[Rfam]
RNA sequence: GGGUGAUUCCCGCUGUAUCCCUUAUUAUUUGCGGGACCCGGCCAUGCGGUGGGUCUGAACGACCUUAGGCGCGAGUCGCCGAGCGUGUGGAGAUGGGGACGGGUUUGAAACCCA
Numbered sequence: 001g002g003g004u005g006a007u008u009c010c011c012g013c014u015g016u017a018u019c020c021c022u023u024a025u026u027a028u029u030u031g032c033g034g035g036a037c038c039c040g041g042c043c044a045u046g047c048g049g050u051g052g053g054u055c056u057g058a059a060c061g062a063c064c065u066u067a068g069g070c071g072c073g074a075g076u077c078g079c080c081g082a083g084c085g086u087g088u089g090g091a092g093a094u095g096g097g098g099a100c101g102g103g104u105u106u107g108a109a110a111c112c113c114a
Stems, first nucleotide, its partner, number of pairs: 001021003008036006037097004042090007051065005068080004101113004

The family of this 114-nucleotide RNA from Cohnella sp. AR92 is "epsC RNA". NCBI's taxonomy places the organism under Bacteria, Bacillati, Caryophanales, Paenibacillaceae, Cohnella. The family's RNA type in Rfam is cis-regulatory element.